Shown here is a 428-nucleotide part of an RNA from Perca fluviatilis, a member of the family "Eukaryotic large subunit ribosomal RNA". The source organism's lineage runs through Eukaryota, Vertebrata, Gnathostomata, Clupeocephala and Perca. Rfam links the family to the GO terms structural constituent of ribosome and ribosome. A reference for the family is Cannone et al. (2002), "The comparative RNA web (CRW) site: an online database of comparative sequence and structure information for ribosomal, intron, and other RNAs", BMC Bioinformatics.
[Rfam]
RNA sequence: CGACCUCAGAUCAGACGAGACAACCCGCUGAAUUUAAGCAUAUUACUAAGCGGAGGAAAAGAAACUAACCAGGAUUCCCUCAGUAGCGGCGAGCGAAGAGGGAAGAGCCCAGCGCCGAAUCCCCGUCCGACGGGCGGAUUGGGGAAAUGUGGCGUAUGGAAGACCGCUUGCCCGGUGUCGCUCGGGGGCCUGAGUCCUUCUGAUCGAGGCUCAGCCCAUGGACGGUGUGAGGCCGGUAACGGCCCCCGUCGCGCCGGGGUCCGGUCUUCUCGGAGUCGGGUUGUUUGGGAAUGCAGCCCAAAGCGGGUGGUAAACUCCAUCUAAGGCUAAAUACCGGCAUGAGACCGAUAGUCGACAAGUACCUUAAGGGAAAGUUGAAAAGAACUUUGAAGAGAGGUUCAAGGGGCGUGAAACCGUUGAGAAGUAAG
Numbered sequence: 001c002g003a004c005c006u007c008a009g010a011u012c013a014g015a016c017g018a019g020a021c022a023a024c025c026c027g028c029u030g031a032a033u034u035u036a037a038g039c040a041u042a043u044u045a046c047u048a049a050g051c052g053g054a055g056g057a058a059a060a061g062a063a064a065c066u067a068a069c070c071a072g073g074a075u076u077c078c079c080u081c082a083g084u085a086g087c088g089g090c091g092a093g094c095g096a097a098g099a100g101g102g103a104a105g106a107g108c109c110c111a112g113c114g115c116c117g118a119a120u121c122c123c124c125g126u127c128c129g130a131c132g133g134g135c136g137g138a139u140u141g142g143g144g145a146a147a148u149g150u151g152g153c154g155u156a157u158g159g160a161a162g163a164c165c166g167c168u169u170g171c172c173c174g175g176u177g178u179c180g181c182u183c184g185g186g187g188g189c190c191u192g193a194g195u196c197c198u199u200c201u202g203a204u205c206g207a208g209g210c211u212c213a214g215c216c217c218a219u220g221g222a223c224g225g226u227g228u229g230a231g232g233c234c235g236g237u238a239a240c241g242g243c244c245c246c247c248g249u250c251g252c253g254c255c256g257g258g259g260u261c262c263g264g265u266c267u268u269c270u271c272g273g274a275g276u277c278g279g280g281u282u283g284u285u286u287g288g289g290a291a292u293g294c295a296g297c298c299c300a301a302a303g304c305g306g307g308u309g310g311u312a313a314a315c316u317c318c319a320u321c322u323a324a325g326g327c328u329a330a331a332u333a334c335c336g337g338c339a340u341g342a343g344a345c346c347g348a349u350a351g352u353c354g355a356c357a358a359g360u361a362c363c364u365u366a367a368g369g370g371a372a373a374g375u376u377g378a379a380a381a382g383a384a385c386u387u388u389g390a391a392g393a394g395a396g397g398u399u400c401a402a403g404g405g406g407c408g409u410g411a412a413a414c415c416g417u418u419g420a421g422a423a424g425u426a427a428g
Base pairs, nucleotide, nucleotide: 024055025053026052027051028050029049035042036041065072066071076103077102078101079100080099086094087093106328107327108326109325113154114153115152116151117150119148120144121143122142123141125139126138127137128136159269160268162266163265164264165263172257173256174255175254176253177252178251184247185246186245187244188243189242190241194210196209197208198207199206217221224234225233278299279298280297281296282295283294284293305322306321307320308319309318362369363368385396386395387394388393